Shown here is a 90-nucleotide sequence from Yersinia kristensenii, a member of the family "AilA 5' UTR thermometer". Gene Ontology terms of the family: regulation of translation and response to temperature stimulus. Taxonomically the source falls in Yersinia kristensenii (Bacteria, Gammaproteobacteria, Enterobacterales, Yersinia). The pairing is the family consensus, mapped onto this sequence. The family's RNA type in Rfam is RNA thermoregulator. From the family's description: AilA gene is associated with Yersinia virulence.

RNA sequence: CGCCAUAUCAGUGAUAUGGUUGUUGUGUUAGAUAUUGUUAUAAUGAUCCGGAUGAUUUUUAUGAAAAAGACAUUAUUGGCCAGUUCUUUG
Numbered sequence: 001c002g003c004c005a006u007a008u009c010a011g012u013g014a015u016a017u018g019g020u021u022g023u024u025g026u027g028u029u030a031g032a033u034a035u036u037g038u039u040a041u042a043a044u045g046a047u048c049c050g051g052a053u054g055a056u057u058u059u060u061a062u063g064a065a066a067a068a069g070a071c072a073u074u075a076u077u078g079g080c081c082a083g084u085u086c087u088u089u090g
Stems, first nucleotide, its partner, number of pairs: 002020005031077004036072002038064006045057004